A member of the RNA family "Bacterial large signal recognition particle RNA" from Exiguobacterium artemiae, 267 nucleotides long.
The base pairs follow the family's consensus structure, which is taken from published work.
Rfam classes the family as a non-coding RNA gene.
RNA sequence: CCGUGCUAGGUGGGGAUGUAGCGGUUCCCUGUCACUCGCAAUCCGCUAUAGCGAGACUGAAUUCCAUAUCGAGGGAUAGGAUUGGUGUGGUCUGCCUUACGUAAGUAGCGUUGACGUCUGAGUCCUGCGCAACAGAUACCCAUGAACCAGGUCAGGUCCGGAAGGAAGCAGCCUUAAGUGGUGCUCUCUGUGUGCCGCAGGAGCGCUUGGACUGAGCAGGCUGCGUGAGUAACGCAUGUUGAACCUAUUUCAGAAUAUGGUGCGCGG
Numbered sequence: 001c002c003g004u005g006c007u008a009g010g011u012g013g014g015g016a017u018g019u020a021g022c023g024g025u026u027c028c029c030u031g032u033c034a035c036u037c038g039c040a041a042u043c044c045g046c047u048a049u050a051g052c053g054a055g056a057c058u059g060a061a062u063u064c065c066a067u068a069u070c071g072a073g074g075g076a077u078a079g080g081a082u083u084g085g086u087g088u089g090g091u092c093u094g095c096c097u098u099a100c101g102u103a104a105g106u107a108g109c110g111u112u113g114a115c116g117u118c119u120g121a122g123u124c125c126u127g128c129g130c131a132a133c134a135g136a137u138a139c140c141c142a143u144g145a146a147c148c149a150g151g152u153c154a155g156g157u158c159c160g161g162a163a164g165g166a167a168g169c170a171g172c173c174u175u176a177a178g179u180g181g182u183g184c185u186c187u188c189u190g191u192g193u194g195c196c197g198c199a200g201g202a203g204c205g206c207u208u209g210g211a212c213u214g215a216g217c218a219g220g221c222u223g224c225g226u227g228a229g230u231a232a233c234g235c236a237u238g239u240u241g242a243a244c245c246u247a248u249u250u251c252a253g254a255a256u257a258u259g260g261u262g263c264g265c266g267g
Base pairs, nucleotide, nucleotide: 001267002266003265004264005263006262009058010057011056012030013029014028015027016026019023035055036054037053038052039051064260065259066258067257068256069255073251074250075249076248077247080244082242083241084240085239086238087237088236089235093231094230097228098227099226100225101224102223105221106220108217109216116212117211118210119209120208121207122206123205124201125200126199127198128197129196130192131191133190134189135188136187140181141180142179143178149174150173151172152171157166158165159164